[Rfam]
RNA: mir-454 microRNA precursor family
Organism: Electrophorus electricus
RNA sequence: UACAGUUCACCUUGCAGGUGAGACCCUAUCAAUAUUGCCUCUGCUUUUUUGACUGUAACUGGAGUAGUGCAAUAUUGCUUAUAGGGUCUUGACUUCAAGGGAUA
Numbered sequence: 001u002a003c004a005g006u007u008c009a010c011c012u013u014g015c016a017g018g019u020g021a022g023a024c025c026c027u028a029u030c031a032a033u034a035u036u037g038c039c040u041c042u043g044c045u046u047u048u049u050u051g052a053c054u055g056u057a058a059c060u061g062g063a064g065u066a067g068u069g070c071a072a073u074a075u076u077g078c079u080u081a082u083a084g085g086g087u088c089u090u091g092a093c094u095u096c097a098a099g100g101g102a103u104a
Stems, first nucleotide, its partner, number of pairs: 020090010030077009041067004045062001